[Rfam]
RNA: Bacterial RNase P class A
Organism: Helicobacter bilis
RNA sequence: GCGGUGUAGCAAGUAAUUGCUUGAAAAAGAGGAAAGUCCGAGCUACAAGAGAUAGGAUUCCAUUUAACAAAUGGCUAGGGUAACCUAAGGGAAAGUGCAACAGAAAUAUACCGCCAUGUUUCACAUGGUAAGGGUGAAAAGGCAGGGUAAGAGCCUACCGAUUUCUUGGCAACAAGAAAUGCCAUGCAAACCCAAUCCGUAGCAAGAAUAGCAGGUUAAUAUCUCUGUCUUUAAGCUAUUCGCUUGAAUAAUAUUGCGAAAUAUUAUCUAGAUAAAUAAUUACUUAAUACAGAACUCGGCUUAUAGCUACACCAAAUCU
Number, nucleotide and partner (000 for none) at each position: 001g000002c000003g313004g312005u311006g310007u309008a308009g307010c306011a304012a284013g283014u282015a281016a280017u279018u278019g000020c029021u028022u027023g000024a000025a000026a000027a022028a021029g020030a000031g000032g000033a000034a302035a301036g300037u000038c299039c298040g297041a296042g295043c202044u201045a200046c199047a000048a000049g000050a000051g000052a000053u000054a000055g198056g197057a196058u195059u194060c074061c073062a072063u071064u070065u000066a000067a000068c000069a000070a064071a063072u062073g061074g060075c089076u087077a086078g085079g084080g000081u000082a000083a000084c079085c078086u077087a076088a000089g075090g193091g192092a000093a000094a000095g191096u190097g187098c186099a185100a000101c000102a000103g000104a000105a000106a000107u000108a000109u000110a000111c133112c132113g129114c128115c127116a126117u125118g124119u123120u000121u000122c000123a119124c118125a117126u116127g115128g114129u113130a000131a000132g112133g111134g000135u000136g000137a000138a000139a000140a000141g159142g158143c000144a156145g155146g154147g000148u000149a000150a000151g000152a000153g000154c146155c145156u144157a000158c142159c141160g182161a180162u179163u178164u177165c176166u175167u174168g173169g000170c000171a000172a000173c168174a167175a166176g165177a164178a163179a162180u161181g000182c160183c000184a000185u099186g098187c097188a000189a000190a096191c095192c091193c090194a059195a058196u057197c056198c055199g046200u045201a044202g043203c000204a000205a000206g241207a240208a239209u238210a237211g236212c235213a000214g000215g000216u000217u000218a000219a000220u000221a000222u000223c000224u000225c000226u000227g000228u000229c000230u000231u000232u000233a000234a000235g212236c211237u210238a209239u208240u207241c206242g000243c000244u000245u000246g000247a000248a267249u266250a265251a264252u263253a262254u261255u260256g000257c000258g000259a000260a255261a254262u253263a252264u251265u250266a249267u248268c000269u000270a000271g000272a000273u000274a000275a000276a000277u000278a018279a017280u016281u015282a014283c013284u012285u000286a000287a000288u000289a000290c000291a000292g000293a000294a000295c042296u041297c040298g039299g038300c036301u035302u034303a000304u011305a000306g010307c009308u008309a007310c006311a005312c004313c003314a000315a000316a000317u000318c000319u000